Rfam assigns this 59-nucleotide RNA from Microvirgula aerodenitrificans to the family "Selenocysteine insertion sequence 3".
Gene Ontology term of the family: selenocysteine incorporation.
The family's consensus secondary structure was predicted with CMfinder.
The organism belongs to Microvirgula, within Bacteria.
Rfam 15.1 lists 640 matches to the family in 593 species.
RNA sequence: GUUUGACACGGUCCGACGGUGGCAAGUCUUGCCCCAACAUUCGGUCGUGGCGCCAUGAC
Numbered sequence: 001g002u003u004u005g006a007c008a009c010g011g012u013c014c015g016a017c018g019g020u021g022g023c024a025a026g027u028c029u030u031g032c033c034c035c036a037a038c039a040u041u042c043g044g045u046c047g048u049g050g051c052g053c054c055a056u057g058a059c
Stems, first nucleotide, its partner, number of pairs: 007049007015042002018035002021033005
Dot-bracket structure: ......(((((((.((.((.(((((...))))))).....)))))))))..........